This 74-nucleotide RNA from Lates calcarifer belongs to the Rfam family "Small nucleolar RNA SNORD59".
RNA sequence: UCUUCUUUGAUGAUUUGCACAGUGACUUUCGUUCUUCUGAGCCUACUGAAGCCAGCCUUUCUGUCCUGAGAAGA
Number, nucleotide and partner (000 for none) at each position: 001u074002c073003u072004u000005c070006u000007u000008u000009g000010a000011u000012g000013a000014u000015u000016u000017g000018c000019a000020c000021a000022g000023u000024g000025a000026c000027u000028u000029u000030c000031g000032u000033u000034c000035u000036u000037c000038u000039g000040a000041g000042c000043c000044u000045a000046c000047u000048g000049a000050a000051g000052c000053c000054a000055g000056c000057c000058u000059u000060u000061c000062u000063g000064u000065c000066c000067u000068g000069a000070g005071a000072a003073g002074a001
NCBI's taxonomy places the organism under Eukaryota, Actinopterygii, Ctenosquamata, Centropomidae, Lates. The family's RNA type in Rfam is C/D-box small nucleolar RNA. It scores 78 bits against the family's covariance model. The family's consensus secondary structure was predicted with ILM. The literature on the family includes a 2002 paper in Mol Cell Biol by Galardi et al., "Purified box C/D snoRNPs are able to reproduce site-specific 2'-O-methylation of target RNA in vitro".